The family of this 80-nucleotide RNA from Alligator sinensis is "Mammalian CPEB3 ribozyme". Pairs were carried over by alignment from the consensus structure, which is taken from published work. Rfam's curators write: The mammalian CPEB3 ribozyme is a self cleaving RNA located in the second intron of the CPEB3 gene which belongs to a family of genes regulating messenger RNA polyadenylation. Rfam links the family to the GO term RNA nuclease activity.

[Rfam]
RNA sequence: CGUUUUAUCCUUGGAGUCAUAGCUGAAGUGUUCAUGUUGCAACCACUGUCAGGUAAUACCUAAUACCUGCAAAUUCUGCU
Numbered sequence: 001c002g003u004u005u006u007a008u009c010c011u012u013g014g015a016g017u018c019a020u021a022g023c024u025g026a027a028g029u030g031u032u033c034a035u036g037u038u039g040c041a042a043c044c045a046c047u048g049u050c051a052g053g054u055a056a057u058a059c060c061u062a063a064u065a066c067c068u069g070c071a072a073a074u075u076c077u078g079c080u
Stems, first nucleotide, its partner, number of pairs: 013046001016043002021080003025076003028040003050069006